Overview:
Group II catalytic intron D1-D4-3: a 172-nucleotide RNA from Secundilactobacillus collinoides.
Nucleotides: 172
Base pairs, nucleotide, nucleotide: 001016002015003014004013005012006011028172030170031169035165036164040159041158042157043156044155045154046150047149048148049147050146062145063144064143065142066141067140073137074136075135077133078132080130081129082128083127085113086112087111088110091106092105093104094103
Number, partner (000 for none) and nucleotide at each position: 001016u002015c003014c004013a005012u006011c007000g008000u009000g010000a011006g012005g013004u014003g015002g016001a017000a018000u019000c020000u021000g022000a023000a024000g025000g026000a027000a028172g029000u030170c031169g032000g033000c034000g035165a036164c037000a038000a039000a040159g041158u042157a043156c044155c045154g046150c047149a048148u049147u050146g051000a052000u053000g054000u055000a056000c057000a058000a059000g060000a061000a062145u063144c064143a065142g066141c067140u068000a069000u070000a071000a072000g073137g074136c075135u076000g077133u078132g079000u080130u081129g082128g083127u084000c085113g086112g087111a088110c089000g090000a091106g092105g093104u094103u095000g096000c097000c098000a099000a100000a101000c102000a103094a104093a105092c106091c107000a108000a109000a110088g111087u112086c113085c114000a115000a116000u117000a118000c119000u120000a121000c122000u123000c124000g125000a126000g127083g128082c129081c130080a131000u132078c133077g134000c135075a136074g137073u138000a139000a140067a141066g142065c143064u144063g145062g146050c147049a148048a149047u150046g151000a152000c153000a154045u155044g156043g157042u158041a159040c160000g161000a162000a163000a164036g165035u166000g167000g168000g169031c170030g171000u172028u
Group II introns are found in rRNA, tRNA and mRNA of organelles in fungi, plants and protists, and also in mRNA in bacteria.
The pairing is the family consensus, mapped onto this sequence.
Rfam links the family to the GO term Group II intron splicing.